[Rfam]
RNA sequence: UCGGUAGCGGGGGGCUCAGACACGCGGUCCACACUCCGGCCGCCGGGACCGCGCCGAGCCACUGGCGAGACCGACCCGCUCGGA
Numbered sequence: 001u002c003g004g005u006a007g008c009g010g011g012g013g014g015c016u017c018a019g020a021c022a023c024g025c026g027g028u029c030c031a032c033a034c035u036c037c038g039g040c041c042g043c044c045g046g047g048a049c050c051g052c053g054c055c056g057a058g059c060c061a062c063u064g065g066c067g068a069g070a071c072c073g074a075c076c077c078g079c080u081c082g083g084a
Base pairs, nucleotide, nucleotide: 001084002083004081006080007079008078009077010076011075013060014059015058023053024052025051026050027049028048029047038072039071041067042066043065044064